[Rfam]
RNA sequence: CAAGCACCUCGAUAGGUGAGGCUCCUACACGAACACAGGCCACUGAUCUGACGACGUCGAGAGACGCCCAAGGUUAGGACAGGUUUUCCCGGAUUAAGGGAUAACCCAAAGUGGCUUCCCGGCCCCGGCCGGGACACGUCGUGUAGUGCCGAAACUCUGACGAGAGGGGUGCCCA
Numbered sequence: 001c002a003a004g005c006a007c008c009u010c011g012a013u014a015g016g017u018g019a020g021g022c023u024c025c026u027a028c029a030c031g032a033a034c035a036c037a038g039g040c041c042a043c044u045g046a047u048c049u050g051a052c053g054a055c056g057u058c059g060a061g062a063g064a065c066g067c068c069c070a071a072g073g074u075u076a077g078g079a080c081a082g083g084u085u086u087u088c089c090c091g092g093a094u095u096a097a098g099g100g101a102u103a104a105c106c107c108a109a110a111g112u113g114g115c116u117u118c119c120c121g122g123c124c125c126c127g128g129c130c131g132g133g134a135c136a137c138g139u140c141g142u143g144u145a146g147u148g149c150c151g152a153a154a155c156u157c158u159g160a161c162g163a164g165a166g167g168g169g170u171g172c173c174c175a
Base pairs, nucleotide, nucleotide: 005171006170007169008168009167010166011161013097015156016155017154020150021149022148025146026145027144028143029142030141031140032139039115040114041113042112043111045075046074047073048072049071055066056065057064058063082106083105084104085103088100089099090098117134118133119132120131121130
RNA: M-box riboswitch aptamer (ykoK leader)